[Rfam]
RNA: Molybdenum/Tungsten riboswitch aptamer (Moco RNA motif)
RNA sequence: AGACUAAUCCGUCUUCGAGCCUUGCUGCCUACCGACUAUUCCAUGGCAGCCUGGCCUGGGCUUCGGUCCGCGGGUAUUACCGGAAACGGUCAUGCCUACCGAUUGUAAAGGAGGGGAUUGCGGUCCGGG
Numbered sequence: 001a002g003a004c005u006a007a008u009c010c011g012u013c014u015u016c017g018a019g020c021c022u023u024g025c026u027g028c029c030u031a032c033c034g035a036c037u038a039u040u041c042c043a044u045g046g047c048a049g050c051c052u053g054g055c056c057u058g059g060g061c062u063u064c065g066g067u068c069c070g071c072g073g074g075u076a077u078u079a080c081c082g083g084a085a086a087c088g089g090u091c092a093u094g095c096c097u098a099c100c101g102a103u104u105g106u107a108a109a110g111g112a113g114g115g116g117a118u119u120g121c122g123g124u125c126c127g128g129g
Stems, first nucleotide, its partner, number of pairs: 004122001012114005019055003024050006034041002057070005072097006079090004098106002